[Rfam]
RNA sequence: UGGCUGUUUUAGUAGAACAGAAAUAUAGUAUUUCAAUAAUUUCUGUAUUGAAAUACUAUAUUCCUGUUCUACUAAAAGAUCCA
Numbered sequence: 001u002g003g004c005u006g007u008u009u010u011a012g013u014a015g016a017a018c019a020g021a022a023a024u025a026u027a028g029u030a031u032u033u034c035a036a037u038a039a040u041u042u043c044u045g046u047a048u049u050g051a052a053a054u055a056c057u058a059u060a061u062u063c064c065u066g067u068u069c070u071a072c073u074a075a076a077a078g079a080u081c082c083a
Stems, first nucleotide, its partner, number of pairs: 001083003005079001007077001010076001011073008020063001022062008

This 83-nucleotide sequence from Notechis scutatus belongs to the Rfam family "mir-16 microRNA precursor family".
Its family is annotated with miRNA-mediated post-transcriptional gene silencing and RISC complex in the Gene Ontology.
The match comes from Rfam's covariance-model search (47 bits).
Its Rfam clan is "mir-15 clan".